[Rfam]
Nucleotides: 167
Stems, first nucleotide, its partner, number of pairs: 007074003020061005026055004091162004104145004109140003113136002
Number, partner (000 for none) and nucleotide at each position: 001000a002000g003000a004000c005000c006000u007074u008073u009072g010000c011000c012000a013000a014000c015000a016000c017000u018000c019000u020061g021060g022059c023058c024057u025000u026055u027054a028053u029052c030000c031000c032000u033000c034000c035000a036000u037000c038000c039000g040000g041000a042000g043000c044000u045000a046000u047000c048000c049000c050000a051000g052029g053028a054027u055026a056000u057024g058023g059022g060021c061020c062000u063000a064000u065000u066000u067000u068000g069000g070000u071000g072009c073008a074007a075000a076000g077000a078000a079000g080000a081000u082000c083000a084000a085000u086000c087000u088000u089000c090000u091162g092161a093160c094159a095000c096000g097000u098000u099000a100000c101000u102000c103000a104145c105144c106143g107142c108000g109140g110139c111138a112000u113136c114135c115000a116000g117000c118000c119000u120000c121000u122000c123000u124000u125000u126000u127000g128000a129000g130000g131000c132000a133000g134000u135114g136113g137000g138111u139110g140109c141000a142107g143106u144105g145104g146000u147000c148000c149000a150000u151000c152000a153000a154000a155000c156000c157000u158000g159094u160093g161092u162091c163000u164000a165000c166000a167000a
Overview: This 167-nucleotide sequence from Capronia epimyces belongs to the Rfam family "Small nucleolar RNA snR80". It is annotated as an H/ACA-box small nucleolar RNA. The family has 6 seed sequences and 447 matches in Rfam 15.1. Rfam links the family to the GO terms RNA processing and nucleolus. Taxonomically the source falls in Capronia epimyces (Eukaryota, Opisthokonta, Dikarya, Herpotrichiellaceae).